[Rfam]
RNA sequence: CGGGCAGGGGGGUCUUCGCUCUCCCGGCGGAGCCUGUCCGUGCAAGGUUGUGCGUGAUCUGUGUCAGGCGCGACCAGUGGUUGUCGCUCGGGGGUGAUCGCCG
Numbered sequence: 001c002g003g004g005c006a007g008g009g010g011g012g013u014c015u016u017c018g019c020u021c022u023c024c025c026g027g028c029g030g031a032g033c034c035u036g037u038c039c040g041u042g043c044a045a046g047g048u049u050g051u052g053c054g055u056g057a058u059c060u061g062u063g064u065c066a067g068g069c070g071c072g073a074c075c076a077g078u079g080g081u082u083g084u085c086g087c088u089c090g091g092g093g094g095u096g097a098u099c100g101c102c103g
Base pairs, nucleotide, nucleotide: 001040002039003038004037005036006035007034008033014032015031016030017029018028019027020026046075047074048073049072050071051070052069053068
Overview
This 103-nucleotide RNA sequence from Streptomyces sp. SID8352 belongs to the Rfam family "che1 RNA". The organism belongs to Streptomyces, within Bacteria. The match comes from Rfam's covariance-model search (86 bits).